[Rfam]
The record is a 62-nucleotide sequence from Ruminococcus sp. CAG:55, which matches "Streptococcus sRNA SpF59 (ldcC RNA)" in Rfam. By type it is a small RNA. Rfam's curators put it in the seed alignment.

RNA sequence: UGCUCACAUUCAGAGACAGUUUCUGAAUGUUAAGCCAUACGGACAGGCGGGGCAGUUGCCGG
Numbered sequence: 001u002g003c004u005c006a007c008a009u010u011c012a013g014a015g016a017c018a019g020u021u022u023c024u025g026a027a028u029g030u031u032a033a034g035c036c037a038u039a040c041g042g043a044c045a046g047g048c049g050g051g052g053c054a055g056u057u058g059c060c061g062g
Base pairs, nucleotide, nucleotide: 001054002053003052004051005050006030007029008028009027010026011025012024013023014022015021016020